[Rfam]
RNA sequence: CCAAGAGCUGUUGGGUCUGGCUCGGCUGCCAGACUCAACGCUAUUGGGUCCAGCUGUCCAGCCAAACCCAAUGCCCAACCAAAUCCAAUAGCGUUGGGUC
Numbered sequence: 001c002c003a004a005g006a007g008c009u010g011u012u013g014g015g016u017c018u019g020g021c022u023c024g025g026c027u028g029c030c031a032g033a034c035u036c037a038a039c040g041c042u043a044u045u046g047g048g049u050c051c052a053g054c055u056g057u058c059c060a061g062c063c064a065a066a067c068c069c070a071a072u073g074c075c076c077a078a079c080c081a082a083a084u085c086c087a088a089u090a091g092c093g094u095u096g097g098g099u100c
Stems, first nucleotide, its partner, number of pairs: 001098002004095002007092010018081003022077001024075003032050007055070002